The family of this 70-nucleotide RNA from Neotoma lepida is "mir-344 microRNA precursor family". A search with the family's covariance model found it, with a score of 66 bits. The family's consensus secondary structure was predicted with RNAalifold.
RNA sequence: UUACCAGUCAGGCUCUGGCUAUAUUCCAGGACACACUUGUUCCUGGGUAUAACCAGAGCCCGACUGUACA
Numbered sequence: 001u002u003a004c005c006a007g008u009c010a011g012g013c014u015c016u017g018g019c020u021a022u023a024u025u026c027c028a029g030g031a032c033a034c035a036c037u038u039g040u041u042c043c044u045g046g047g048u049a050u051a052a053c054c055a056g057a058g059c060c061c062g063a064c065u066g067u068a069c070a
Base pairs, nucleotide, nucleotide: 007064008063009062011060012059013058014057016055017054018053020051021050022049023048027039028038029037030036